[Rfam]
The record is a 60-nucleotide part of an RNA from Azospirillum lipoferum, which matches "Bacterial large subunit ribosomal RNA" in Rfam. The base pairs follow the family's consensus structure, which is taken from published work.

RNA sequence: CGUUCCGUAAGCCUGCGAAGGGUGUCCGUGAGGCCGCCUGGAGGUAUCGGAAGUGAGAAU
Numbered sequence: 001c002g003u004u005c006c007g008u009a010a011g012c013c014u015g016c017g018a019a020g021g022g023u024g025u026c027c028g029u030g031a032g033g034c035c036g037c038c039u040g041g042a043g044g045u046a047u048c049g050g051a052a053g054u055g056a057g058a059a060u
Base pairs, nucleotide, nucleotide: 001055003052004051005050006049007048011045012044013043020039021038022037023036024035026033027032